About this RNA:
Rfam assigns this 128-nucleotide sequence from Dendrobium catenatum to the family "U11 spliceosomal RNA". Clan: U1 clan.

[Rfam]
RNA sequence: UAAAAGGGUCGGUUGGCUAUGUAUGUCACGCACAUCUUUUAAUUGAUGGGUGUUGUAUGGUUAUCAAGACAUAUGGCUGACAUAAGUUAUGGAUGUUAUAGGGUUGGCUUGCUCGGCUUAUCCUUUUU
Numbered sequence: 001u002a003a004a005a006g007g008g009u010c011g012g013u014u015g016g017c018u019a020u021g022u023a024u025g026u027c028a029c030g031c032a033c034a035u036c037u038u039u040u041a042a043u044u045g046a047u048g049g050g051u052g053u054u055g056u057a058u059g060g061u062u063a064u065c066a067a068g069a070c071a072u073a074u075g076g077c078u079g080a081c082a083u084a085a086g087u088u089a090u091g092g093a094u095g096u097u098a099u100a101g102g103g104u105u106g107g108c109u110u111g112c113u114c115g116g117c118u119u120a121u122c123c124u125u126u127u128u
Stems, first nucleotide, its partner, number of pairs: 008081005014028004029052003033048004053076007098126001100124002103122001105120002107117003

A reference for the family is Montzka and Steitz (1988), "Additional low-abundance human small nuclear ribonucleoproteins: U11, U12, etc", Proc Natl Acad Sci U S A. A search with the family's covariance model found it, with a score of 57 bits. The family's consensus secondary structure is taken from published work. It is annotated as a spliceosomal small nuclear RNA.